[Rfam]
RNA: DUF3800-VII RNA
Organism: Blautia luti
RNA sequence: AAGGAACGUCGCCAGAUAACGCGAGGGUGAAAUCACCAGCAUGCUUGACAUGUGGUAGUCGCGCUGGGAGUUCCUUUUCUU
Numbered sequence: 001a002a003g004g005a006a007c008g009u010c011g012c013c014a015g016a017u018a019a020c021g022c023g024a025g026g027g028u029g030a031a032a033u034c035a036c037c038a039g040c041a042u043g044c045u046u047g048a049c050a051u052g053u054g055g056u057a058g059u060c061g062c063g064c065u066g067g068g069a070g071u072u073c074c075u076u077u078u079c080u081u
Base pairs, nucleotide, nucleotide: 001076002075003074004073005072006071007070010068012067013066014065015064020063021062022061023060024059026037027036028035029034040052041051042050043049